The family of this 116-nucleotide sequence from Caballeronia glathei is "Burkholderia sRNA Bp1_Cand684_SIPHT". A reference for the family is Khoo et al. (2012), "Computational discovery and RT-PCR validation of novel Burkholderia conserved and Burkholderia pseudomallei unique sRNAs", BMC Genomics. The family's RNA type in Rfam is small RNA. The match comes from Rfam's covariance-model search (49 bits).

[Rfam]
RNA sequence: AAGAAAGUGACUGCCGCCCCGCACAGGGGCGAAGCUAAUAAACCAAUAGCAAAGCAAGUUUCAUAGGAGCGCAAGCGUAUCAAACGGUGUAAACAGCCCGUCCCCACAAGUGCGAG
Numbered sequence: 001a002a003g004a005a006a007g008u009g010a011c012u013g014c015c016g017c018c019c020c021g022c023a024c025a026g027g028g029g030c031g032a033a034g035c036u037a038a039u040a041a042a043c044c045a046a047u048a049g050c051a052a053a054g055c056a057a058g059u060u061u062c063a064u065a066g067g068a069g070c071g072c073a074a075g076c077g078u079a080u081c082a083a084a085c086g087g088u089g090u091a092a093a094c095a096g097c098c099c100g101u102c103c104c105c106a107c108a109a110g111u112g113c114g115a116g
Stems, first nucleotide, its partner, number of pairs: 012079003015031006058070005100107002
Dot-bracket structure: ...........(((((((((.....))))))..........................(((((...)))))......)))....................((....)).........